[Rfam]
RNA sequence: AAGGUUUCGGAGCCAGUCGCUUGGAUUAAUUCAAGAGGAAAGUCCGGACUUCACAGGGCAAGGGAGACAGCUAACGACUGUUGGGAGAAAUCCUAAGGAAAGUGCCACAGAAAAUAAACCGCCUGUAAAGGUAAGGGUGAAAAGGUAGUGUAAGAGACUACCGGUGGGCUAAGAGAUUAGUUCAGCCGGGUAAACCCCUCCCGAAGCAAGAAUAAGUAGAAAGCGAUUAAAGGCUGCCCGUCUUCGCUUAAUGGUAAUUCGCUAAAGUUGACAGAUGAUUGUCAACUUAGAUAAAUGAUUGGCAAAUACAGAAUCCGGCUUAUACCGGGACCUUUUAA
Numbered sequence: 001a002a003g004g005u006u007u008c009g010g011a012g013c014c015a016g017u018c019g020c021u022u023g024g025a026u027u028a029a030u031u032c033a034a035g036a037g038g039a040a041a042g043u044c045c046g047g048a049c050u051u052c053a054c055a056g057g058g059c060a061a062g063g064g065a066g067a068c069a070g071c072u073a074a075c076g077a078c079u080g081u082u083g084g085g086a087g088a089a090a091u092c093c094u095a096a097g098g099a100a101a102g103u104g105c106c107a108c109a110g111a112a113a114a115u116a117a118a119c120c121g122c123c124u125g126u127a128a129a130g131g132u133a134a135g136g137g138u139g140a141a142a143a144g145g146u147a148g149u150g151u152a153a154g155a156g157a158c159u160a161c162c163g164g165u166g167g168g169c170u171a172a173g174a175g176a177u178u179a180g181u182u183c184a185g186c187c188g189g190g191u192a193a194a195c196c197c198c199u200c201c202c203g204a205a206g207c208a209a210g211a212a213u214a215a216g217u218a219g220a221a222a223g224c225g226a227u228u229a230a231a232g233g234c235u236g237c238c239c240g241u242c243u244u245c246g247c248u249u250a251a252u253g254g255u256a257a258u259u260c261g262c263u264a265a266a267g268u269u270g271a272c273a274g275a276u277g278a279u280u281g282u283c284a285a286c287u288u289a290g291a292u293a294a295a296u297g298a299u300u301g302g303c304a305a306a307u308a309c310a311g312a313a314u315c316c317g318g319c320u321u322a323u324a325c326c327g328g329g330a331c332c333u334u335u336u337a338a
Stems, first nucleotide, its partner, number of pairs: 001334010011323001012303007020035006040321003044318005049206004057239002062202005067081004082096001083094004097197002102195002104191003119136002121132004144162006164186001165184008210260004221249004230244005267286008
RNA: Bacterial RNase P class A
Organism: Pseudoleptotrichia goodfellowii